[Rfam]
RNA sequence: UGGUUGCGCUGGUGAAAAGGAACCACAUCAACCCAGCAAAAGGAUUUGGUCCCCUUCAACCAGCCGCAACUG
Numbered sequence: 001u002g003g004u005u006g007c008g009c010u011g012g013u014g015a016a017a018a019g020g021a022a023c024c025a026c027a028u029c030a031a032c033c034c035a036g037c038a039a040a041a042g043g044a045u046u047u048g049g050u051c052c053c054c055u056u057c058a059a060c061c062a063g064c065c066g067c068a069a070c071u072g
Stems, first nucleotide, its partner, number of pairs: 003070004008065001009063005016056002019052003023049003027045003
About this RNA: The record is a 72-nucleotide RNA from Xenopus laevis, which matches "mir-133 microRNA precursor family" in Rfam. Lineage of the source: Eukaryota > Deuterostomia > Gnathostomata > Teleostomi > Xenopus. The family's consensus secondary structure was predicted with PFOLD. mir-133 was first experimentally characterised in mouse and homologues have since been discovered in several other species. The mature sequence is excised from the 3' arm of the hairpin.